Nucleotides: 078
Base pairs, nucleotide, nucleotide: 014047015046016045017044018043019042022078023077024076025075026074027073028072029041030040031039051068052067053066054065055064056063057062
Number, partner (000 for none) and nucleotide at each position: 001000c002000g003000a004000g005000g006000u007000u008000a009000a010000g011000a012000g013000g014047g015046g016045g017044g018043u019042c020000a021000u022078u023077g024076u025075a026074g027073a028072a029041g030040u031039g032000u033000g034000c035000u036000c037000g038000u039031c040030g041029c042019g043018a044017c045016c046015c047014c048000u049000g050000c051068c052067a053066g054065c055064c056063c057062u058000u059000u060000u061000c062057a063056g064055g065054g066053c067052u068051g069000c070000a071000a072028u073027u074026c075025u076024a077023c078022a
This 78-nucleotide sequence from Parnassius apollo belongs to the Rfam family "Mammalian CPEB3 ribozyme". The family's consensus secondary structure is taken from published work. NCBI's taxonomy places the organism under Eukaryota, Dicondylia, Pterygota, Parnassini, Parnassius.